[Rfam]
RNA: Small nucleolar RNA snoR14
RNA sequence: UCAAUGUGAUGAUUAGUAAAAAUUUGUCAAUCCAUUGAAAAUUUAUUGAUGUUAUUUUCUGUCCUAACAGGUUAUGAUUGA
Numbered sequence: 001u002c003a004a005u006g007u008g009a010u011g012a013u014u015a016g017u018a019a020a021a022a023u024u025u026g027u028c029a030a031u032c033c034a035u036u037g038a039a040a041a042u043u044u045a046u047u048g049a050u051g052u053u054a055u056u057u058u059c060u061g062u063c064c065u066a067a068c069a070g071g072u073u074a075u076g077a078u079u080g081a
Stems, first nucleotide, its partner, number of pairs: 001081004